Nucleotides: 083
Base pairs, nucleotide, nucleotide: 005023006022007021008020009019044078045077046076047075048074049073
Number, partner (000 for none) and nucleotide at each position: 001000c002000g003000c004000a005023u006022g007021g008020g009019g010000a011000u012000u013000g014000c015000g016000a017000c018000g019009c020008c021007c022006c023005a024000c025000g026000a027000g028000g029000c030000g031000c032000c033000a034000g035000c036000u037000g038000a039000a040000g041000a042000u043000c044078g045077c046076g047075u048074u049073c050000c051000a052000c053000c054000c055000g056000c057000c058000a059000c060000a061000c062000c063000a064000g065000c066000c067000a068000a069000u070000g071000g072000g073049g074048a075047a076046c077045g078044c079000a080000c081000a082000u083000g